[Rfam]
RNA sequence: UAUAUUUUUAACUUCGGUAUUGAAAACUCCCAUCGUUAUAUGGAUUCUCCCAGUUACCUCAGCUUCACAGUGCUGGGGUUUUU
Numbered sequence: 001u002a003u004a005u006u007u008u009u010a011a012c013u014u015c016g017g018u019a020u021u022g023a024a025a026a027c028u029c030c031c032a033u034c035g036u037u038a039u040a041u042g043g044a045u046u047c048u049c050c051c052a053g054u055u056a057c058c059u060c061a062g063c064u065u066c067a068c069a070g071u072g073c074u075g076g077g078g079u080u081u082u083u
Base pairs, nucleotide, nucleotide: 056079057078058077059076060075061074062073063072